[Rfam]
RNA sequence: AAGAACAGUGAUGAGUUAUACCAGAUUUUUAUGAUUUGUGAACAUGAUUGCAGAUUUUUAUGAACAUCCAAGGGACUGAGUUCUU
Numbered sequence: 001a002a003g004a005a006c007a008g009u010g011a012u013g014a015g016u017u018a019u020a021c022c023a024g025a026u027u028u029u030u031a032u033g034a035u036u037u038g039u040g041a042a043c044a045u046g047a048u049u050g051c052a053g054a055u056u057u058u059u060a061u062g063a064a065c066a067u068c069c070a071a072g073g074g075a076c077u078g079a080g081u082u083c084u085u
Stems, first nucleotide, its partner, number of pairs: 002084005
RNA: Small nucleolar RNA SNORD25